c-di-GMP-I riboswitch aptamer: an 85-nucleotide sequence from Methylobacillus sp. MM3. Lineage of the source: Bacteria > Pseudomonadati > Betaproteobacteria > Methylophilaceae > Methylobacillus.
[Rfam]
RNA sequence: AUCGAAUAAAGGCAAACCCAUCGAAAGGUGGGGACGCAAAGUCACCGGUCUAAGGGAUUUAUCCUAUGACAGCGGGAUUGCCGGA
Numbered sequence: 001a002u003c004g005a006a007u008a009a010a011g012g013c014a015a016a017c018c019c020a021u022c023g024a025a026a027g028g029u030g031g032g033g034a035c036g037c038a039a040a041g042u043c044a045c046c047g048g049u050c051u052a053a054g055g056g057a058u059u060u061a062u063c064c065u066a067u068g069a070c071a072g073c074g075g076g077a078u079u080g081c082c083g084g085a
Stems, first nucleotide, its partner, number of pairs: 012037002017032006040079004045075003048070003055064003
The base pairs follow the family's consensus structure, which is taken from published work. A search with the family's covariance model found it, with a score of 87 bits. Rfam describes the family as follows. GEMM was predicted in a large-scale screen for bacterial structured RNA regulatory elements. Genes associated with GEMM are involved in a diverse array of functions, including chemotaxis regulation, signal transduction, secretion and chitin.